[Rfam]
RNA sequence: CUCCUCGAAAGCUAUUUAGGUAGCGCCUCAUAUGUAUCCUCUCGGGGGUAGAGCACUGUUAUGGCUAGGGGGUCAUCGCGACUUACCAAACCAUUGCAAACUCCGAAUACCGAGACGGACUGUAUGGGAGACACACGGCGGGUGCUAACGUCCGUCGUGAAAAGGGAAACAACCCAGACCCACAGCUAAGGUCCCAAAUUACCGCUAAGUGGGAAACGAUGUGGAAAGGCACAGACAGCCAGGAGGUUGGCUUAGAAGCAGCCACCCUUUAAAGAAAGCGUAAUAGCUCACUGGUCGAGUCGGUCUGCGCGGAAGAUUUAACGGGGCUAAGCGGUAAACCGAAGCUUGGGGUGCAUCACUUCGUGAUGCGCGGUAGAGGAGCGUUCCGUAAGCCUGCGAAGGUGGAUUGAGAAGUCCGCUGGAGGUAUCGGAAGUGCGAAU
Number, nucleotide and partner (000 for none) at each position: 001c381002u380003c379004c378005u377006c376007g000008a000009a000010a000011g024012c023013u022014a021015u020016u000017u000018a000019g000020g015021u014022a013023g012024c011025g000026c130027c128028u127029c126030a125031u124032a123033u122034g000035u000036a121037u118038c117039c000040u115041c114042u113043c112044g111045g110046g000047g000048g000049u000050a000051g104052a102053g101054c000055a000056c000057u098058g097059u096060u000061a094062u093063g092064g091065c000066u000067a000068g087069g086070g084071g083072g082073u081074c080075a000076u000077c000078g000079c000080g074081a073082c072083u071084u070085a000086c069087c068088a000089a000090a000091c064092c063093a062094u061095u000096g059097c058098a057099a000100a000101c053102u052103c000104c051105g000106a000107a000108u000109a000110c045111c044112g043113a042114g041115a040116c000117g038118g037119a000120c000121u036122g033123u032124a031125u030126g029127g028128g027129a000130g026131a000132c000133a000134c159135a158136c157137g156138g155139c154140g153141g152142g151143u150144g000145c000146u000147a000148a000149c000150g143151u142152c141153c140154g139155u138156c137157g136158u135159g134160a000161a000162a000163a000164g175165g174166g173167a000168a000169a000170c000171a000172a000173c166174c165175c164176a000177g000178a000179c350180c349181c348182a347183c000184a346185g345186c344187u000188a000189a000190g340191g339192u338193c000194c000195c000196a000197a000198a000199u337200u336201a335202c334203c333204g332205c331206u000207a000208a000209g000210u000211g000212g000213g000214a000215a000216a000217c311218g310219a000220u000221g308222u307223g306224g305225a304226a000227a000228g301229g300230c299231a000232c000233a000234g000235a000236c000237a000238g295239c294240c293241a292242g291243g000244a268245g267246g266247u000248u000249g263250g262251c261252u000253u000254a000255g000256a000257a000258g000259c000260a000261g251262c250263c249264a000265c000266c246267c245268u244269u273270u000271a000272a000273a269274g289275a000276a000277a000278g287279c286280g000281u000282a000283a000284u000285a000286g279287c278288u000289c274290a000291c242292u241293g240294g239295u238296c000297g000298a000299g230300u229301c228302g000303g000304u225305c224306u223307g222308c221309g000310c218311g217312g000313a000314a000315g000316a000317u000318u000319u000320a000321a000322c000323g000324g000325g000326g000327c000328u000329a000330a000331g205332c204333g203334g202335u201336a200337a199338a192339c191340c190341g000342a000343a000344g186345c185346u184347u182348g181349g180350g179351g371352u370353g369354c368355a367356u366357c365358a364359c000360u000361u000362c000363g000364u358365g357366a356367u355368g354369c353370g352371c351372g000373g000374u000375a000376g006377a005378g004379g003380a002381g001382c436383g000384u433385u432386c431387c430388g429389u000390a000391a000392g426393c425394c424395u000396g000397c000398g000399a000400a000401g420402g419403u418404g417405g416406a415407u414408u413409g000410a000411g000412a000413a408414g407415u406416c405417c404418g403419c402420u401421g000422g000423a000424g394425g393426u392427a000428u000429c388430g387431g386432a385433a384434g000435u000436g382437c000438g000439a000440a000441u000
Shown here is a 441-nucleotide part of an RNA from Pseudoxanthomonas suwonensis, a member of the family "Bacterial large subunit ribosomal RNA". Pairs were carried over by alignment from the consensus structure, which is taken from published work. It scores 2857 bits against the family's covariance model.